This 134-nucleotide RNA sequence from Struthio camelus belongs to the Rfam family "Small nucleolar RNA SNORA9". The family has 36 seed sequences and 1,202 matches in Rfam 15.1. The organism belongs to Struthio camelus, within Eukaryota.

RNA sequence: CCGCAAGCCUUCCAGCGUGGCCGGGUCUGAGGUGACCCUGUUCAUUCCUGUAGUGCUUGCCAGAGCAGCCCUGAGAUGGUUUGAGGCCUCUCUCUGCUCCCUUCGGAGGGAGGCUAUAGAAAUCUCGGACAUGC
Numbered sequence: 001c002c003g004c005a006a007g008c009c010u011u012c013c014a015g016c017g018u019g020g021c022c023g024g025g026u027c028u029g030a031g032g033u034g035a036c037c038c039u040g041u042u043c044a045u046u047c048c049u050g051u052a053g054u055g056c057u058u059g060c061c062a063g064a065g066c067a068g069c070c071c072u073g074a075g076a077u078g079g080u081u082u083g084a085g086g087c088c089u090c091u092c093u094c095u096g097c098u099c100c101c102u103u104c105g106g107a108g109g110g111a112g113g114c115u116a117u118a119g120a121a122a123u124c125u126c127g128g129a130c131a132u133g134c
Stems, first nucleotide, its partner, number of pairs: 003060006018044003023038005072127005087113006094106003

The match comes from Rfam's covariance-model search (133 bits).
The family is grouped with related families in Rfam's "SNORA9 clan".
About the family: ACA9 is a member of the H/ACA class of snoRNA that guide the sites of modification of uridines to pseudouridines.